[Rfam]
RNA sequence: UGUCACAAGUUCGUGGCCACAGCAGAAGUGCUCACGGCUCAGCCCUGUCAGAUUCCAAUGAAUCUGUGAAUUCUUCU
Numbered sequence: 001u002g003u004c005a006c007a008a009g010u011u012c013g014u015g016g017c018c019a020c021a022g023c024a025g026a027a028g029u030g031c032u033c034a035c036g037g038c039u040c041a042g043c044c045c046u047g048u049c050a051g052a053u054u055c056c057a058a059u060g061a062a063u064c065u066g067u068g069a070a071u072u073c074u075u076c077u
Stems, first nucleotide, its partner, number of pairs: 013045001015044003021077002024074004028040001030038001049066007
This 77-nucleotide sequence from Alligator mississippiensis belongs to the Rfam family "Mammalian CPEB3 ribozyme".
Rfam links the family to the GO term RNA nuclease activity.
A search with the family's covariance model found it, with a score of 56 bits.
Pairs were carried over by alignment from the consensus structure, which is taken from published work.
The organism belongs to Alligator, within Eukaryota.